Shown here is a 97-nucleotide sequence from Saccharopolyspora gloriosae, a member of the family "Bacterial small signal recognition particle RNA". It is annotated as a non-coding RNA gene.
RNA sequence: GGUGGGACUCCGUGCGACGUCCAUCCUGUGAACUCCCCCAGGGCCGGAAGGCAGCAAGGGUAAGCGGGCUCUGGCGGGUGCGCGGGGUCCCGCUUAC
Numbered sequence: 001g002g003u004g005g006g007a008c009u010c011c012g013u014g015c016g017a018c019g020u021c022c023a024u025c026c027u028g029u030g031a032a033c034u035c036c037c038c039c040a041g042g043g044c045c046g047g048a049a050g051g052c053a054g055c056a057a058g059g060g061u062a063a064g065c066g067g068g069c070u071c072u073g074g075c076g077g078g079u080g081c082g083c084g085g086g087g088u089c090c091c092g093c094u095u096a097c
Stems, first nucleotide, its partner, number of pairs: 004091011015078001018076004025068005035060003043052003
Dot-bracket structure: ...((((((((((((..((((...(((((.....(((.....(((....))).....)))...)))))....)))).)..)))))))))))......
Pairs were carried over by alignment from the consensus structure, which is taken from published work. A reference for the family is Rosenblad et al. (2003), "SRPDB: Signal Recognition Particle Database", Nucleic Acids Res.